[Rfam]
RNA sequence: UAGCGAUACUCUGGAAAGUGUCCCAUUCCUUGGGGCCGCCGAAGGGGUAACCUUGGACUUGCUCCAAGGGAAAGCUCUCAGGUUUCCGUGACAGAGGGGGCACC
Numbered sequence: 001u002a003g004c005g006a007u008a009c010u011c012u013g014g015a016a017a018g019u020g021u022c023c024c025a026u027u028c029c030u031u032g033g034g035g036c037c038g039c040c041g042a043a044g045g046g047g048u049a050a051c052c053u054u055g056g057a058c059u060u061g062c063u064c065c066a067a068g069g070g071a072a073a074g075c076u077c078u079c080a081g082g083u084u085u086c087c088g089u090g091a092c093a094g095a096g097g098g099g100g101c102a103c104c
Stems, first nucleotide, its partner, number of pairs: 007098001009096005020036004038083003041079002045077003051070004